[Rfam]
RNA sequence: UAGGGGAACGAAACUUCACUAUCACCCGCAGGAGUAAUAGCUGCAGAUUUUCCUGGAGGGAUGAGGCCUUCUGACAGCCAUGAAGUAUCCCAGUUAAAUG
Numbered sequence: 001u002a003g004g005g006g007a008a009c010g011a012a013a014c015u016u017c018a019c020u021a022u023c024a025c026c027c028g029c030a031g032g033a034g035u036a037a038u039a040g041c042u043g044c045a046g047a048u049u050u051u052c053c054u055g056g057a058g059g060g061a062u063g064a065g066g067c068c069u070u071c072u073g074a075c076a077g078c079c080a081u082g083a084a085g086u087a088u089c090c091c092a093g094u095u096a097a098a099u100g
Base pairs, nucleotide, nucleotide: 010089011088013086014085015084016083017082041059042058044056046054

Pyrrolysine insertion sequence 1: a 100-nucleotide RNA from Pseudobacteroides cellulosolvens. The source organism's lineage runs through Bacteria, Bacillati, Bacillota, Clostridia and Pseudobacteroides cellulosolvens. A search with the family's covariance model found it, with a score of 78 bits. On this family, see Theobald-Dietrich et al., Biochimie 2005: "Evidence for the existence in mRNAs of a hairpin element responsible for ribosome dependent pyrrolysine insertion into proteins".